[Rfam]
RNA: 6C RNA
RNA sequence: GGCCGUUCAGUCCGACCCCCGGGACUGAACACUGGCGGCCCCCGUUCCUCCCCCUGGCGGGGGCCGUCCCUC
Numbered sequence: 001g002g003c004c005g006u007u008c009a010g011u012c013c014g015a016c017c018c019c020c021g022g023g024a025c026u027g028a029a030c031a032c033u034g035g036c037g038g039c040c041c042c043c044g045u046u047c048c049u050c051c052c053c054c055u056g057g058c059g060g061g062g063g064c065c066g067u068c069c070c071u072c
Stems, first nucleotide, its partner, number of pairs: 002033001005030009034068013